[Rfam]
RNA sequence: CUAUGUCUUGCAAUAUUAGACAUGGCGGAAGGAG
Numbered sequence: 001c002u003a004u005g006u007c008u009u010g011c012a013a014u015a016u017u018a019g020a021c022a023u024g025g026c027g028g029a030a031g032g033a034g
Stems, first nucleotide, its partner, number of pairs: 001025008
This 34-nucleotide sequence belongs to the Rfam family "L31-Firmicutes ribosomal protein leader". The base pairs follow the family's consensus structure, which is taken from published work. The literature on the family includes a 2020 paper in BMC Microbiol by Eckert and Weinberg, "Discovery of 20 novel ribosomal leader candidates in bacteria and archaea".